[Rfam]
RNA sequence: UACAAGCAUGACUAUAAGUCGCUUUGGAUAAAAGAGUCUGCCAAAUGGCACAUA
Numbered sequence: 001u002a003c004a005a006g007c008a009u010g011a012c013u014a015u016a017a018g019u020c021g022c023u024u025u026g027g028a029u030a031a032a033a034g035a036g037u038c039u040g041c042c043a044a045a046u047g048g049c050a051c052a053u054a
Base pairs, nucleotide, nucleotide: 013043015040016039020036022034023033024032025031